[Rfam]
RNA sequence: AGGUGGGGUAGAGGCGCGAUAUUUAACAGUUUUUAGUGGAGUUUGAGAAGCAAUGAUACUAAUAAGAAGGAAAUGUCGCCGAAGCUUAUAAUAUUCUCAGUAUUAUUUGCUGGGUCUGUAGUUAAGAGCUACAGGACUGUCUCAAUAAACUUCCCAGUUUAUUGAGUUGUGCUAUCUCAUUU
Numbered sequence: 001a002g003g004u005g006g007g008g009u010a011g012a013g014g015c016g017c018g019a020u021a022u023u024u025a026a027c028a029g030u031u032u033u034u035a036g037u038g039g040a041g042u043u044u045g046a047g048a049a050g051c052a053a054u055g056a057u058a059c060u061a062a063u064a065a066g067a068a069g070g071a072a073a074u075g076u077c078g079c080c081g082a083a084g085c086u087u088a089u090a091a092u093a094u095u096c097u098c099a100g101u102a103u104u105a106u107u108u109g110c111u112g113g114g115u116c117u118g119u120a121g122u123u124a125a126g127a128g129c130u131a132c133a134g135g136a137c138u139g140u141c142u143c144a145a146u147a148a149a150c151u152u153c154c155c156a157g158u159u160u161a162u163u164g165a166g167u168u169g170u171g172c173u174a175u176c177u178c179a180u181u182u
Stems, first nucleotide, its partner, number of pairs: 006177006016079009031064001033062006083111003088106007112138002115135008141166009